RNA sequence: UGCCUCACACGAAAGGUGUGGGGGAGGAAUAUUGUUGUCAACCCUUUCUUCAUAAUUUCUGUCAGGAGACUGCA
Numbered sequence: 001u002g003c004c005u006c007a008c009a010c011g012a013a014a015g016g017u018g019u020g021g022g023g024g025a026g027g028a029a030u031a032u033u034g035u036u037g038u039c040a041a042c043c044c045u046u047u048c049u050u051c052a053u054a055a056u057u058u059c060u061g062u063c064a065g066g067a068g069a070c071u072g073c074a
Stems, first nucleotide, its partner, number of pairs: 003023008055071001058069003
The family of this 74-nucleotide sequence from Pseudoflavonifractor sp. An184 is "RT-6 RNA". By type it is a small RNA. A search with the family's covariance model found it, with a score of 58 bits. The base pairs follow the family's consensus structure, which is taken from published work. The source organism's lineage runs through Bacteria, Bacillati, Eubacteriales, Oscillospiraceae and Pseudoflavonifractor.